[Rfam]
RNA: HNH endonuclease-associated RNA and ORF (HEARO) RNA
Nucleotides: 243
Base pairs, nucleotide, nucleotide: 001061003059004058005057006056007055008054013028018025019024032051033050034049035048036047037046038045039044064228065227066226069085070084071083072082073081088222089221090220091219092218093217096214097213098212103137104136107131108130109129110128111127112126113125114124115239117237119234120233121232122231139182140181141180142179146177147176151175152174154172155171156170157169158168159167
Number, partner (000 for none) and nucleotide at each position: 001061g002000u003059c004058a005057a006056c007055c008054a009000u010000g011000a012000c013028c014000c015000c016000u017000c018025a019024c020000u021000a022000a023000a024019g025018u026000a027000a028013g029000g030000g031000a032051c033050u034049u035048g036047a037046a038045g039044u040000a041000u042000u043000u044039a045038c046037u047036u048035c049034a050033a051032g052000u053000c054008u055007g056006g057005u058004u059003g060000u061001c062000u063000a064228g065227a066226c067000u068000c069085a070084g071083u072082g073081u074000u075000u076000u077000u078000u079000g080000a081073a082072c083071a084070c085069u086000a087000c088222g089221u090220u091219a092218u093217c094000u095000u096214g097213g098212u099000g100000a101000u102000c103137a104136c105000a106000c107131c108130u109129g110128g111127g112126a113125a114124u115239g116000a117237u118000a119234c120233c121232c122231u123000a124114g125113u126112u127111c128110c129109c130108a131107g132000u133000u134000c135000u136104g137103u138000g139182c140181g141180g142179g143000c144000a145000c146177u147176g148000u149000a150000a151175a152174c153000a154172g155171u156170c157169c158168u159167a160000a161000g162000g163000u164000c165000a166000a167159u168158g169157g170156g171155a172154c173000c174152g175151u176147c177146a178000a179142c180141c181140c182139g183000u184000g185000a186000g187000a188000a189000a190000a191000c192000u193000g194000c195000u196000g197000c198000u199000c200000g201000u202000c203000a204000g205000c206000g207000g208000u209000u210000a211000a212098g213097c214096c215000u216000u217093g218092a219091u220090a221089a222088c223000a224000u225000u226066g227065u228064c229000g230000a231122a232121g233120g234119g235000u236000a237117a238000c239115c240000u241000c242000a243000c